[Rfam]
RNA sequence: CCCCAUCUUACCCAGCAGUGUUUGGGUGCCGCUCGGGAGUCUCUAAUACUGCCGGGUAAUGAUGGAGG
Numbered sequence: 001c002c003c004c005a006u007c008u009u010a011c012c013c014a015g016c017a018g019u020g021u022u023u024g025g026g027u028g029c030c031g032c033u034c035g036g037g038a039g040u041c042u043c044u045a046a047u048a049c050u051g052c053c054g055g056g057u058a059a060u061g062a063u064g065g066a067g068g
Base pairs, nucleotide, nucleotide: 001067003065004064005063006062007061008059009058010057011056012055013054015052016051017050018049019048020047022046023045024044025043026042
Shown here is a 68-nucleotide sequence from Monodelphis domestica, a member of the family "mir-8/mir-141/mir-200 microRNA precursor family". The family is grouped with related families in Rfam's "mir-8 microRNA precursor clan".